[Rfam]
RNA sequence: AACAGGCUCUUUUAGUAUUUCUCCAGUAGGUUUUCUGAAGGAGAAAGCCUUA
Numbered sequence: 001a002a003c004a005g006g007c008u009c010u011u012u013u014a015g016u017a018u019u020u021c022u023c024c025a026g027u028a029g030g031u032u033u034u035c036u037g038a039a040g041g042a043g044a045a046a047g048c049c050u051u052a
Stems, first nucleotide, its partner, number of pairs: 029049008

Record summary: A member of the RNA family "U7 small nuclear RNA" from Salmo salar, 52 nucleotides long. Lineage of the source: Eukaryota > Craniata > Vertebrata > Actinopteri > Salmo. A reference for the family is Mowry and Steitz (1987), "Identification of the human U7 snRNP as one of several factors involved in the 3' end maturation of histone premessenger RNA's", Science.